[Rfam]
SAM riboswitch aptamer (S box leader): a 105-nucleotide RNA from Aneurinibacillus soli. From the family's description: The SAM riboswitch is found upstream of a number of genes which code for proteins involved in methionine or cysteine biosynthesis in Gram-positive bacteria. A search with the family's covariance model found it, with a score of 94 bits.
RNA sequence: CUCUUAUCCAGAGAGGCAGAGGGACUGGCCCGAUGAAGCCUCGGCAACCGUUGAAUGAUUCAAUUGGUGCCAAUUCCAGCUGGACGCAUGUCCGACAGAUAAGAG
Numbered sequence: 001c002u003c004u005u006a007u008c009c010a011g012a013g014a015g016g017c018a019g020a021g022g023g024a025c026u027g028g029c030c031c032g033a034u035g036a037a038g039c040c041u042c043g044g045c046a047a048c049c050g051u052u053g054a055a056u057g058a059u060u061c062a063a064u065u066g067g068u069g070c071c072a073a074u075u076c077c078a079g080c081u082g083g084a085c086g087c088a089u090g091u092c093c094g095a096c097a098g099a100u101a102a103g104a105g
Stems, first nucleotide, its partner, number of pairs: 001105008013042005021031003025079004043071004048067002050064004075097001080094001082093004